[Rfam]
RNA sequence: CCUAUGGAGUGUACAAGAACUUGCGAGUAGAUUAUGAUAAAUCAUGUCAAAAGCAUAUACGAUGAAGUAGGAA
Numbered sequence: 001c002c003u004a005u006g007g008a009g010u011g012u013a014c015a016a017g018a019a020c021u022u023g024c025g026a027g028u029a030g031a032u033u034a035u036g037a038u039a040a041a042u043c044a045u046g047u048c049a050a051a052a053g054c055a056u057a058u059a060c061g062a063u064g065a066a067g068u069a070g071g072a073a
Stems, first nucleotide, its partner, number of pairs: 001071005009060005022055003030048003035044002
Dot-bracket structure: (((((...(((((........(((.....(((..((......)).)))....))))))))......)))))..
Annotation:
RAGATH-18 RNA: a 73-nucleotide RNA sequence. About the family: Actinobacteria, Firmicutes, Fusobacteria, Thermotogae (1 example). It is annotated as a small RNA. The family's consensus secondary structure is taken from published work.